[Rfam]
RNA sequence: AUGGGGAUGAUGAUAAAAAUAGACGAUUUUGAAUGAUUCAUAUGAAUGUGAUUUCACAACCAGCUACUUCUGACUCAU
Number, nucleotide and partner (000 for none) at each position: 001a078002u077003g076004g075005g074006g000007a000008u000009g000010a000011u000012g000013a000014u000015a000016a000017a000018a000019a000020u000021a000022g000023a000024c000025g000026a000027u000028u000029u000030u000031g000032a000033a000034u000035g000036a000037u000038u000039c000040a000041u000042a000043u000044g000045a000046a000047u000048g000049u000050g000051a000052u000053u000054u000055c000056a000057c000058a000059a000060c000061c000062a000063g000064c000065u000066a000067c000068u000069u000070c000071u000072g000073a000074c005075u004076c003077a002078u001
The record is a 78-nucleotide sequence from Artemisia annua, which matches "Small nucleolar RNA R12" in Rfam. snoR12 is a C/D box small nucleolar RNA, which acts as a methylation guide for 25S ribosomal RNA in plants. snoR12 has been alternatively named snoZ44 in Arabidopsis and snoZ131 in rice. The match comes from Rfam's covariance-model search (57 bits). It is annotated as a C/D-box small nucleolar RNA.